Annotation:
The record is a 165-nucleotide sequence from Nonomuraea maritima, which matches "c-di-AMP riboswitch aptamer (ydaO/yuaA leader)" in Rfam. Lineage of the source: Bacteria > Bacillati > Actinomycetota > Actinomycetes > Nonomuraea. The match comes from Rfam's covariance-model search (81 bits). About the family: This family represents a conserved RNA structure found upstream of the ydaO and yuaA genes in Bacillus subtilis and related genes in other bacteria.
[Rfam]
RNA sequence: CGGGCGGCCUUGCCGAGUCCGUGCAGCCAGGAGGCACGGAGCCGGGGAACCAGCGAUCCCGCGUUCACCAGGGAUCAGGGGUGAAUCGGCGUGCCAGCACGCCGUAGGGCGAUCUUCCAGGCCCGAAUCCGACAGCUAACCCGGUAGGCGUUGGUGGAAGAUCCA
Numbered sequence: 001c002g003g004g005c006g007g008c009c010u011u012g013c014c015g016a017g018u019c020c021g022u023g024c025a026g027c028c029a030g031g032a033g034g035c036a037c038g039g040a041g042c043c044g045g046g047g048a049a050c051c052a053g054c055g056a057u058c059c060c061g062c063g064u065u066c067a068c069c070a071g072g073g074a075u076c077a078g079g080g081g082u083g084a085a086u087c088g089g090c091g092u093g094c095c096a097g098c099a100c101g102c103c104g105u106a107g108g109g110c111g112a113u114c115u116u117c118c119a120g121g122c123c124c125g126a127a128u129c130c131g132a133c134a135g136c137u138a139a140c141c142c143g144g145u146a147g148g149c150g151u152u153g154g155u156g157g158a159a160g161a162u163c164c165a
Stems, first nucleotide, its partner, number of pairs: 011150004018040007041145006051078001079130003087104004107124004